[Rfam]
Shown here is a 125-nucleotide RNA sequence from Nothoprocta perdicaria, a member of the family "Small nucleolar RNA SNORD22". The family has 49 seed sequences and 1,081 matches in Rfam 15.1. The base pairs follow the family's consensus structure, which was predicted with PFOLD. NCBI's taxonomy places the organism under Eukaryota, Sarcopterygii, Dipnotetrapodomorpha, Amniota, Nothoprocta. The literature on the family includes a 1996 paper in Nature by Tycowski et al., "A mammalian gene with introns instead of exons generating stable RNA products". A search with the family's covariance model found it, with a score of 90 bits.
RNA sequence: CCCCCAUGAGGAAAACCGCACGCGUCUUACUGCCCGUUCGGCACCAGAACCUGCAAAGGUUGAACCCACUGGCGCCGGCGGCCGGAGAGGAGGACGACCUGUUCGGUGGGAACGGUCUGAGGGGG
Numbered sequence: 001c002c003c004c005c006a007u008g009a010g011g012a013a014a015a016c017c018g019c020a021c022g023c024g025u026c027u028u029a030c031u032g033c034c035c036g037u038u039c040g041g042c043a044c045c046a047g048a049a050c051c052u053g054c055a056a057a058g059g060u061u062g063a064a065c066c067c068a069c070u071g072g073c074g075c076c077g078g079c080g081g082c083c084g085g086a087g088a089g090g091a092g093g094a095c096g097a098c099c100u101g102u103u104c105g106g107u108g109g110g111a112a113c114g115g116u117c118u119g120a121g122g123g124g125g
Stems, first nucleotide, its partner, number of pairs: 001124004
Dot-bracket structure: ((((....................................................................................................................)))).